[Rfam]
RNA sequence: AUAAUGAUACUUCUGCAUAGUCACAGGCUGAGCGUUGAAGCGGAAUGAGAAACCGUGAGCCGUCGCACCCAAUGAAUGUGGCCGGAGAGAUCCUACCGGAGGUGAGAGUCCUAUGA
Numbered sequence: 001a002u003a004a005u006g007a008u009a010c011u012u013c014u015g016c017a018u019a020g021u022c023a024c025a026g027g028c029u030g031a032g033c034g035u036u037g038a039a040g041c042g043g044a045a046u047g048a049g050a051a052a053c054c055g056u057g058a059g060c061c062g063u064c065g066c067a068c069c070c071a072a073u074g075a076a077u078g079u080g081g082c083c084g085g086a087g088a089g090a091u092c093c094u095a096c097c098g099g100a101g102g103u104g105a106g107a108g109u110c111c112u113a114u115g116a
Stems, first nucleotide, its partner, number of pairs: 012113001013081006082099003086094002100112003
RNA: pemK RNA
Organism: Ruminococcaceae bacterium KH2T8